The record is a 138-nucleotide sequence from Paenibacillus oceani, which matches "Group II catalytic intron D1-D4-4" in Rfam. Rfam links the family to the GO term Group II intron splicing. Group II introns are found in rRNA, tRNA and mRNA of organelles in fungi, plants and protists, and also in mRNA in bacteria. For this family Rfam cites "The ins and outs of group II introns" (Bonen and Vogel, Trends Genet, 2001). The base pairs follow the family's consensus structure. A search with the family's covariance model found it, with a score of 99 bits. The organism belongs to Paenibacillus, within Bacteria.

RNA sequence: UAGCUGAUGAAAGUUCAGCCGGGGUAGGGGCCAAGCCGCCCCGUAGCUAGCAGGCAGACGCAGGAGAGAUCCGGCGGCUGAAGCCCUGCGAAAAACUGCGCAAAGCGCAGGGAAGCGAAUUCACAGGCCGUAAUGGAC
Numbered sequence: 001u002a003g004c005u006g007a008u009g010a011a012a013g014u015u016c017a018g019c020c021g022g023g024g025u026a027g028g029g030g031c032c033a034a035g036c037c038g039c040c041c042c043g044u045a046g047c048u049a050g051c052a053g054g055c056a057g058a059c060g061c062a063g064g065a066g067a068g069a070u071c072c073g074g075c076g077g078c079u080g081a082a083g084c085c086c087u088g089c090g091a092a093a094a095a096c097u098g099c100g101c102a103a104a105g106c107g108c109a110g111g112g113a114a115g116c117g118a119a120u121u122c123a124c125a126g127g128c129c130g131u132a133a134u135g136g137a138c
Base pairs, nucleotide, nucleotide: 020043021042022041023040024039050089051088052087053086054085055080056079057078059076060075064071065070096110097109098108099107100106101105115131116130117129